[Rfam]
RNA sequence: UUGUCAGGUAAGAUACUUCUUACCUGUUCCUCUUUUUGGAGGGCAGAAUAGAAUGUGAUGAUUGGAGCUCGAAUGAUUUAUGAUUAAGGGCUCUCCAUAAUCAGGACUUGCAACACCCUGACUACACCUAUCUGAU
Numbered sequence: 001u002u003g004u005c006a007g008g009u010a011a012g013a014u015a016c017u018u019c020u021u022a023c024c025u026g027u028u029c030c031u032c033u034u035u036u037u038g039g040a041g042g043g044c045a046g047a048a049u050a051g052a053a054u055g056u057g058a059u060g061a062u063u064g065g066a067g068c069u070c071g072a073a074u075g076a077u078u079u080a081u082g083a084u085u086a087a088g089g090g091c092u093c094u095c096c097a098u099a100a101u102c103a104g105g106a107c108u109u110g111c112a113a114c115a116c117c118c119u120g121a122c123u124a125c126a127c128c129u130a131u132c133u134g135a136u
Stems, first nucleotide, its partner, number of pairs: 024046003028043006075093002078090002081086001098124002101121005